[Rfam]
A member of the RNA family "c-di-AMP riboswitch aptamer (ydaO/yuaA leader)" from Arthrobacter sp. CAU 1506, 173 nucleotides long. Rfam describes the family as follows. This family represents a conserved RNA structure found upstream of the ydaO and yuaA genes in Bacillus subtilis and related genes in other bacteria. Taxonomically the source falls in Arthrobacter (Bacteria, Bacillati, Actinomycetota, Micrococcaceae).
Nucleotides: 173
Base pairs, nucleotide, nucleotide: 013156014155018030031153032152033151034150035149036148041069042068070138071137072136078115079114080113118132119131120130121129
Number, partner (000 for none) and nucleotide at each position: 001000a002000g003000u004000u005000c006000g007000u008000u009000c010000g011000c012000a013156c014155c015000g016000a017000a018030u019000c020000g021000c022000a023000u024000g025000g026000c027000a028000g029000a030018g031153g032152c033151g034150g035149g036148g037000g038000a039000a040000c041069c042068a043000c044000u045000u046000c047000c048000c049000g050000g051000a052000c053000g054000u055000c056000u057000c058000a059000g060000g061000a062000c063000g064000u065000c066000c067000u068042u069041g070138g071137g072136g073000u074000a075000a076000a077000g078115c079114c080113g081000a082000u083000c084000a085000g086000g087000c088000c089000c090000g091000g092000g093000c094000c095000a096000c097000c098000a099000g100000c101000u102000c103000g104000g105000a106000a107000g108000c109000c110000g111000g112000c113080c114079g115078g116000c117000c118132g119131g120130a121129u122000g123000a124000c125000u126000c127000c128000c129121a130120u131119c132118c133000g134000a135000a136072c137071c138070c139000g140000a141000c142000a143000g144000c145000u146000c147000a148036c149035c150034u151033c152032g153031c154000a155014g156013g157000c158000a159000u160000u161000u162000g163000g164000g165000a166000g167000a168000g169000g170000u171000a172000c173000a